RNA sequence: UUACUAUCUUCAACAGUGCUUUGAAAUAGUUU
Numbered sequence: 001u002u003a004c005u006a007u008c009u010u011c012a013a014c015a016g017u018g019c020u021u022u023g024a025a026a027u028a029g030u031u032u
Stems, first nucleotide, its partner, number of pairs: 003030005009025003012021002014018001

This 32-nucleotide RNA sequence from Enhydra lutris belongs to the Rfam family "Iron response element II". Taxonomically the source falls in Enhydra lutris (Eukaryota, Craniata, Gnathostomata, Lutrinae). IRE, TFRC, SLC40A1, SDHB, SLC11A2, CDC42BPA, ACO2, ALAS2_H.SAPIENS, CDC14A, EPAS1, ALAS2, qoxD, Hao1, NDUFS1, transferrin, Aconitate. Rfam classes the family as a cis-regulatory element. Pairs were carried over by alignment from the consensus structure, which is taken from published work.